A member of the RNA family "TPP riboswitch aptamer (THI element)" from Solilutibacter silvestris, 96 nucleotides long. From the family's description: Vitamin B(1) in its active form thiamin pyrophosphate (TPP) is an essential coenzyme that is synthesised by coupling of pyrimidine and thiazole moieties in bacteria. The previously detected thiamin-regulatory element, thi box was extended, resulting in a new, highly conserved RNA secondary structure, the THI element, which is widely distributed in eubacteria and also occurs in some archaea. Analysis of operon structures identified a large number of new candidate thiamin-regulated genes, mostly transporters, in various prokaryotic organisms. The match comes from Rfam's covariance-model search (63 bits). The base pairs follow the family's consensus structure, which is taken from published work.

RNA sequence: GCCCUGAAGCGGGGGUACCGUCGGCUGGCGGUUGAGAAACACCCUUCGAACCUGAUCCGGUUUAGACCGGCGUAGGGAAGCUUCGCAGCGGUGCCG
Numbered sequence: 001g002c003c004c005u006g007a008a009g010c011g012g013g014g015g016u017a018c019c020g021u022c023g024g025c026u027g028g029c030g031g032u033u034g035a036g037a038a039a040c041a042c043c044c045u046u047c048g049a050a051c052c053u054g055a056u057c058c059g060g061u062u063u064a065g066a067c068c069g070g071c072g073u074a075g076g077g078a079a080g081c082u083u084c085g086c087a088g089c090g091g092u093g094c095c096g
Stems, first nucleotide, its partner, number of pairs: 006084005011045004016039001017032005051076004057070004